[Rfam]
RNA: Small nucleolar RNA U2-19
Organism: Sus scrofa
RNA sequence: CUUCUCUUACUGAAAACAGCCAGGUCUGAGCAUCCAAAGACCUCUGGUCUGCCUAAUGCAUGAUCCCCGUAGUUCUGAGC
Numbered sequence: 001c002u003u004c005u006c007u008u009a010c011u012g013a014a015a016a017c018a019g020c021c022a023g024g025u026c027u028g029a030g031c032a033u034c035c036a037a038a039g040a041c042c043u044c045u046g047g048u049c050u051g052c053c054u055a056a057u058g059c060a061u062g063a064u065c066c067c068c069g070u071a072g073u074u075c076u077g078a079g080c
Stems, first nucleotide, its partner, number of pairs: 030059004038050004